[Rfam]
RNA sequence: CGAGAACCGAUUGCUACGAAAGUAGAGGAAAGUCCGGGCAUCCACAAUCUGCGAUGAUUGUAGUGUUUGUACUGCGUCUAAUAAAUGCAGGUAGCAUUUUGCUAACGACAGACCUAAGACCUAAACCGUAAAGGCAUGGUUGAUAAGUCAUAAAGUGCCACAGAAACUAUGUUGUCUUGAAAAAGACAAAUGAAAAGCGGUAAACUCUGCAAGGAUGAAACCCAAAUUUUGGUAGGGGAACUUCAUUAAAGGAAAUGAACGAUAAUGGAGAUGCAUAGCAUAGAUAAAUAAUCGGUUGAAAAACAGAACUCGGCUUAUC
Numbered sequence: 001c002g003a004g005a006a007c008c009g010a011u012u013g014c015u016a017c018g019a020a021a022g023u024a025g026a027g028g029a030a031a032g033u034c035c036g037g038g039c040a041u042c043c044a045c046a047a048u049c050u051g052c053g054a055u056g057a058u059u060g061u062a063g064u065g066u067u068u069g070u071a072c073u074g075c076g077u078c079u080a081a082u083a084a085a086u087g088c089a090g091g092u093a094g095c096a097u098u099u100u101g102c103u104a105a106c107g108a109c110a111g112a113c114c115u116a117a118g119a120c121c122u123a124a125a126c127c128g129u130a131a132a133g134g135c136a137u138g139g140u141u142g143a144u145a146a147g148u149c150a151u152a153a154a155g156u157g158c159c160a161c162a163g164a165a166a167c168u169a170u171g172u173u174g175u176c177u178u179g180a181a182a183a184a185g186a187c188a189a190a191u192g193a194a195a196a197g198c199g200g201u202a203a204a205c206u207c208u209g210c211a212a213g214g215a216u217g218a219a220a221c222c223c224a225a226a227u228u229u230u231g232g233u234a235g236g237g238g239a240a241c242u243u244c245a246u247u248a249a250a251g252g253a254a255a256u257g258a259a260c261g262a263u264a265a266u267g268g269a270g271a272u273g274c275a276u277a278g279c280a281u282a283g284a285u286a287a288a289u290a291a292u293c294g295g296u297u298g299a300a301a302a303a304c305a306g307a308a309c310u311c312g313g314c315u316u317a318u319c
Base pairs, nucleotide, nucleotide: 005318006296007295008294009293010292011291012290014025015024016023017022030316031315032314034313035312036311037310038309039217040216041215042214043213044061045060046059047058048057049056067212068211069210070209071208072090073089074088075087076086077085091106092104093103094102095101096100107207108206111149112148113147118141119140120139121138126134127133155205156204157201158200159199172189173188174187175186176185177184178183221237222236223235241270242269243268244267245266246265247264271281272280273279274278
Dot-bracket structure: ....((((((((.((((....))))....[[[.[[[[[(((((((((((......)))))).....(((((((((((.......))))))((((((...))))).)((..(((....((((....((.....))...)))).....))).....(((((............(((((((....))))))).........)))..))))))))))))))...(((...........)))...(((((((................)))))))((((...))))........)))))))............]]]]]]]].).